[Rfam]
The family of this 72-nucleotide sequence from Tripterygium wilfordii is "Small nucleolar RNA Z105". Lineage of the source: Eukaryota > Tracheophyta > rosids > Celastrales > Tripterygium. A search with the family's covariance model found it, with a score of 46 bits. By type it is a C/D-box small nucleolar RNA. The family's consensus secondary structure was predicted with CMfinder. A reference for the family is Chen et al. (2003), "The high diversity of snoRNAs in plants: identification and comparative study of 120 snoRNA genes from Oryza sativa", Nucleic Acids Res.

RNA sequence: GCAUAAUGAUGAUGAAAUAUUCAAACCUCAAAUGUCUCAGAUGAUGAAUUGAAUACCUCCUACUCAUUCUGA
Number, nucleotide and partner (000 for none) at each position: 001g000002c000003a000004u000005a000006a067007u066008g065009a064010u000011g000012a000013u000014g000015a000016a000017a000018u000019a000020u000021u000022c000023a000024a000025a000026c000027c000028u047029c043030a000031a000032a000033u000034g000035u000036c000037u000038c000039a000040g000041a000042u000043g029044a000045u000046g000047a028048a000049u000050u000051g000052a000053a000054u000055a000056c000057c000058u000059c000060c000061u000062a000063c000064u009065c008066a007067u006068u000069c000070u000071g000072a000